[Rfam]
Nucleotides: 241
Stems, first nucleotide, its partner, number of pairs: 002139007010127005018121008026091005033084004037078004044074001047071004053065004093108006153236004160229001162227004172219008
Number, partner (000 for none) and nucleotide at each position: 001000a002139a003138c004137a005136c006135g007134c008133u009000c010127c011126u012125u013124a014123g015000a016000u017000c018121c019120a020119c021118c022117u023116c024115u025114g026091g027090g028089g029088g030087g031000c032000g033084c034083u035082c036081c037078a038077g039076u040075g041000c042000u043000a044074g045000a046000a047071c048070u049069g050068u051000u052000g053065c054064a055063c056062u057000g058000c059000c060000u061000g062056g063055g064054u065053g066000c067000a068050g069049c070048a071047g072000c073000u074044c075040c076039a077038u078037u079000c080000u081036g082035g083034g084033g085000g086000g087030c088029u089028u090027c091026c092000a093108g094107c095106a096105a097104c098103u099000u100000g101000c102000c103098g104097g105096u106095u107094g108093u109000a110000c111000a112000g113000u114025u115024g116023g117022a118021g119020g120019u121018g122000c123014u124013u125012g126011a127010g128000u129000c130000a131000u132000u133008g134007g135006c136005g137004u138003g139002u140000g141000a142000g143000a144000g145000c146000a147000g148000u149000a150000u151000a152000c153236c154235u155234g156233c157000c158000c159000u160229c161000c162227c163226g164225g165224c166000c167000c168000c169000c170000c171000g172219c173218u174217g175216c176215a177214c178213u179212g180000g181000u182000a183000c184000c185000c186000c187000g188000u189000u190000g191000g192000c193000u194000c195000u196000g197000c198000u199000g200000g201000c202000a203000g204000g205000a206000a207000g208000u209000u210000c211000c212179c213178a214177g215176u216175g217174c218173a219172g220000c221000u222000a223000g224165g225164c226163c227162g228000a229160g230000g231000g232000a233156g234155c235154g236153g237000a238000c239000a240000g241000a